Small nucleolar RNA SNORA47: a 131-nucleotide RNA sequence from Bucco capensis. Taxonomically the source falls in Bucco (Eukaryota, Euteleostomi, Telluraves, Bucconidae). The literature on the family includes a 2001 paper in EMBO J by Huttenhofer et al., "RNomics: an experimental approach that identifies 201 candidates for novel, small, non-messenger RNAs in mouse".
RNA sequence: UGGAGGGCUGAGAAGGUAAGACAGUUAAAACUUCAUGCUGUUUCUUACUGGUUAUGGCCUCCAACAUCAUUAUAGUACAAUGGCAACUCACGUUCUCCUCCCUGACAUGAGGGGAAGCAGUACUGCAUUUG
Numbered sequence: 001u002g003g004a005g006g007g008c009u010g011a012g013a014a015g016g017u018a019a020g021a022c023a024g025u026u027a028a029a030a031c032u033u034c035a036u037g038c039u040g041u042u043u044c045u046u047a048c049u050g051g052u053u054a055u056g057g058c059c060u061c062c063a064a065c066a067u068c069a070u071u072a073u074a075g076u077a078c079a080a081u082g083g084c085a086a087c088u089c090a091c092g093u094u095c096u097c098c099u100c101c102c103u104g105a106c107a108u109g110a111g112g113g114g115a116a117g118c119a120g121u122a123c124u125g126c127a128u129u130u131g
Stems, first nucleotide, its partner, number of pairs: 002062005015049004019043007082124002086121003094115005101109001